[Rfam]
RNA sequence: UGAUGCCAGGGUCAAAAGGUCAUAAACCACGUUGUGCUUGCACAUAAGUGGUUUUAUGCCUUUAUGACCCGCCCCAAUAUGAGAAUAAAAGUGGGGCGCAUGCCCCACGAUAUUCGAAUUUGGGGCAGAAUUGUGAAAGUGCGCAGCACGAAACAAUUCGUCAGGCAUCU
Numbered sequence: 001u002g003a004u005g006c007c008a009g010g011g012u013c014a015a016a017a018g019g020u021c022a023u024a025a026a027c028c029a030c031g032u033u034g035u036g037c038u039u040g041c042a043c044a045u046a047a048g049u050g051g052u053u054u055u056a057u058g059c060c061u062u063u064a065u066g067a068c069c070c071g072c073c074c075c076a077a078u079a080u081g082a083g084a085a086u087a088a089a090a091g092u093g094g095g096g097c098g099c100a101u102g103c104c105c106c107a108c109g110a111u112a113u114u115c116g117a118a119u120u121u122g123g124g125g126c127a128g129a130a131u132u133g134u135g136a137a138a139g140u141g142c143g144c145a146g147c148a149c150g151a152a153a154c155a156a157u158u159c160g161u162c163a164g165g166c167a168u169c170u
Base pairs, nucleotide, nucleotide: 002169003168004167005166006165007164010069011068012067013066016063017062018061019060021058022057023056024055025054026052027051028050029049030048033044034043035042036041073125074124075123077121079119080118083115084114085113086112091108092107093106094105095104096103097102128159129158130157131156132155133154134153139149140148141147142146
Clostridiales-1 RNA: a 170-nucleotide sequence from Firmicutes bacterium CAG:646.